The record is a 158-nucleotide RNA from Dendrobium catenatum, which matches "Small nucleolar RNA snoR145" in Rfam.
RNA sequence: AGGUGAAGGUCCCAGCAGAGGGGAUGGAUCUCCAGCGUUGAGUCCUCUCUAACAAUUGCAAUAAAUCCUUCACAAAUGAAUGAAUUUGAGCCGAUUUGUAAGACACUUUGGAUUUGUGUUAUGGGUUUCAUUGCGUCUAGAAAAGCGGCUAUAUAAAA
Numbered sequence: 001a002g003g004u005g006a007a008g009g010u011c012c013c014a015g016c017a018g019a020g021g022g023g024a025u026g027g028a029u030c031u032c033c034a035g036c037g038u039u040g041a042g043u044c045c046u047c048u049c050u051a052a053c054a055a056u057u058g059c060a061a062u063a064a065a066u067c068c069u070u071c072a073c074a075a076a077u078g079a080a081u082g083a084a085u086u087u088g089a090g091c092c093g094a095u096u097u098g099u100a101a102g103a104c105a106c107u108u109u110g111g112a113u114u115u116g117u118g119u120u121a122u123g124g125g126u127u128u129c130a131u132u133g134c135g136u137c138u139a140g141a142a143a144a145g146c147g148g149c150u151a152u153a154u155a156a157a158a
Stems, first nucleotide, its partner, number of pairs: 003073007011020001013018001026048002030042003034038001090149004095144001102137002106133001109130004
The literature on the family includes a 2009 paper in Nucleic Acids Res by Chen and Wu, "Mining small RNA sequencing data: a new approach to identify small nucleolar RNAs in Arabidopsis". The organism belongs to Dendrobium, within Eukaryota. Rfam classes the family as an H/ACA-box small nucleolar RNA. Its family is annotated with RNA processing and nucleolus in the Gene Ontology.